[Rfam]
RNA: ALIL pseudoknot
RNA sequence: GGCGUCUUUUGCCCAGGCGGAGCUCGACCGCCCCUUCACGAGGUGAAGCGCUUCAUCGACGACCAUCGCGACGUUCACGGGGUCGAGCCGAUCUGCAAGGUGUUGCCGAUCGCCCCG
Number, nucleotide and partner (000 for none) at each position: 001g000002g000003c000004g000005u000006c000007u000008u000009u000010u000011g000012c000013c000014c000015a000016g032017g031018c030019g029020g028021a000022g000023c000024u000025c000026g000027a000028c020029c019030g018031c017032c016033c000034c000035u000036u000037c000038a000039c000040g000041a000042g000043g000044u000045g000046a000047a000048g000049c000050g000051c000052u000053u000054c000055a000056u000057c000058g000059a000060c000061g000062a000063c000064c000065a000066u000067c000068g000069c000070g000071a000072c000073g000074u000075u000076c000077a000078c117079g116080g115081g114082g113083u000084c000085g000086a000087g000088c000089c112090g111091a000092u109093c108094u000095g106096c105097a104098a103099g000100g000101u000102g000103u098104u097105g096106c095107c000108g093109a092110u000111c090112g089113c082114c081115c080116c079117g078